This 39-nucleotide RNA sequence from [Enterobacter] lignolyticus belongs to the Rfam family "JUMPstart RNA". The source organism's lineage runs through Bacteria, Pseudomonadati, Gammaproteobacteria, Pluralibacter and [Enterobacter] lignolyticus. A search with the family's covariance model found it, with a score of 56 bits. It is annotated as a cis-regulatory element. The base pairs follow the family's consensus structure, which is taken from published work.
[Rfam]
RNA sequence: CAGUACACUGGUAGCUGUAGAGCCAGGGGCGGUAGCAUG
Number, nucleotide and partner (000 for none) at each position: 001c000002a000003g000004u000005a000006c000007a000008c026009u025010g024011g023012u022013a000014g000015c000016u000017g000018u000019a000020g000021a000022g012023c011024c010025a009026g008027g000028g000029g000030c000031g000032g000033u000034a000035g000036c000037a000038u000039g000